Description: The family of this 79-nucleotide sequence from Alligator mississippiensis is "Mammalian CPEB3 ribozyme". It scores 39 bits against the family's covariance model.
RNA sequence: AGAGUUCACAAGUUUGAGGCCAUGUAGAAGUGCCCAUGUCAUGGCCCUGUCAGAUUCCAAUGAAUAUGCAAAUUAUGCU
Numbered sequence: 001a002g003a004g005u006u007c008a009c010a011a012g013u014u015u016g017a018g019g020c021c022a023u024g025u026a027g028a029a030g031u032g033c034c035c036a037u038g039u040c041a042u043g044g045c046c047c048u049g050u051c052a053g054a055u056u057c058c059a060a061u062g063a064a065u066a067u068g069c070a071a072a073u074u075a076u077g078c079u
Stems, first nucleotide, its partner, number of pairs: 016047001018046004024078003028074002030042003051068002054065004